[Rfam]
RNA sequence: AUAGCACGUUUGGGCUUCCAUUAUCUUUCCCAGCAGGUUCACGAACGUAUGCUGGCAAGAAAUGGCAGUCCACAUGUGUAAA
Dot-bracket structure: .(.((((((..(((((.((((..((((..((((((.(........).)..))))).)))).)))).)))))..)))))).).
Numbered sequence: 001a002u003a004g005c006a007c008g009u010u011u012g013g014g015c016u017u018c019c020a021u022u023a024u025c026u027u028u029c030c031c032a033g034c035a036g037g038u039u040c041a042c043g044a045a046c047g048u049a050u051g052c053u054g055g056c057a058a059g060a061a062a063u064g065g066c067a068g069u070c071c072a073c074a075u076g077u078g079u080a081a082a
Stems, first nucleotide, its partner, number of pairs: 002081001004079006012071005018065004024060004030055005035048001037046001
This 82-nucleotide RNA from Caenorhabditis brenneri belongs to the Rfam family "mir-74 microRNA precursor family". For this family Rfam cites "An abundant class of tiny RNAs with probable regulatory roles in Caenorhabditis elegans" (Lau et al., Science, 2001). Rfam links the family to the GO terms miRNA-mediated post-transcriptional gene silencing and RISC complex. The base pairs follow the family's consensus structure, which was predicted with RNAalifold. It scores 80 bits against the family's covariance model.